Background
This 73-nucleotide RNA sequence from Crocodylus porosus belongs to the Rfam family "Mammalian CPEB3 ribozyme". For this family Rfam cites "A genomewide search for ribozymes reveals an HDV-like sequence in the human CPEB3 gene" (Salehi-Ashtiani et al., Science, 2006). A search with the family's covariance model found it, with a score of 49 bits. Rfam describes the family as follows. The mammalian CPEB3 ribozyme is a self cleaving RNA located in the second intron of the CPEB3 gene which belongs to a family of genes regulating messenger RNA polyadenylation.
RNA sequence: AGAGGUUGUGAGGCCACAGCAGAAACACUCACGGAAUGGCCUGUGAGAUUCCAGUGAAUCUGCAAAUUCUGCU
Numbered sequence: 001a002g003a004g005g006u007u008g009u010g011a012g013g014c015c016a017c018a019g020c021a022g023a024a025a026c027a028c029u030c031a032c033g034g035a036a037u038g039g040c041c042u043g044u045g046a047g048a049u050u051c052c053a054g055u056g057a058a059u060c061u062g063c064a065a066a067u068u069c070u071g072c073u
Base pairs, nucleotide, nucleotide: 012041013040014039015038018073019072020071021070022069023068024067025037046061047060048059049058050057051056
Dot-bracket structure: ...........[[[[..((((((((...........)]]]]....((((((....)))))).....)))))))